[Rfam]
RNA: c-di-GMP-I riboswitch aptamer
Organism: Bacillus sp. AFS040349
RNA sequence: UAUAAAAUUGGGCAAACCAUUUGAAAAAAUGGGACGCAAAACUAAAGGGGCUUAUCAUUUUAUGCUAGCCAGUUGCAGAU
Numbered sequence: 001u002a003u004a005a006a007a008u009u010g011g012g013c014a015a016a017c018c019a020u021u022u023g024a025a026a027a028a029a030u031g032g033g034a035c036g037c038a039a040a041a042c043u044a045a046a047g048g049g050g051c052u053u054a055u056c057a058u059u060u061u062a063u064g065c066u067a068g069c070c071a072g073u074u075g076c077a078g079a080u
Stems, first nucleotide, its partner, number of pairs: 012037002017032006040074004047070002049066003
Dot-bracket structure: ...........((...((((((....))))))...))..((((...(((((............)))..))))))......